[Rfam]
RNA sequence: UAGGGAACGGCACAGCCGCAAAUCCGACUCGUCGUGAGAUUUCACGGCUCUGGGAUUGCGGACGUGC
Numbered sequence: 001u002a003g004g005g006a007a008c009g010g011c012a013c014a015g016c017c018g019c020a021a022a023u024c025c026g027a028c029u030c031g032u033c034g035u036g037a038g039a040u041u042u043c044a045c046g047g048c049u050c051u052g053g054g055a056u057u058g059c060g061g062a063c064g065u066g067c
Stems, first nucleotide, its partner, number of pairs: 010067004016061006024054002031048007
RNA: S15-Halobacteria ribosomal protein leader